[Rfam]
RNA sequence: ACAAUGAUACUUCCAGAUAUAAGCUGAUCUGGUCUGAAAAGAUGGUGGGAUUCCAAUGG
Numbered sequence: 001a002c003a004a005u006g007a008u009a010c011u012u013c014c015a016g017a018u019a020u021a022a023g024c025u026g027a028u029c030u031g032g033u034c035u036g037a038a039a040a041g042a043u044g045g046u047g048g049g050a051u052u053c054c055a056a057u058g059g
Base pairs, nucleotide, nucleotide: 012056013032014031015030016029017028018027033042034041035040043055044054045053
This 59-nucleotide sequence from Eubacterium plexicaudatum belongs to the Rfam family "pemK RNA". It is annotated as a cis-regulatory element. A search with the family's covariance model found it, with a score of 42 bits.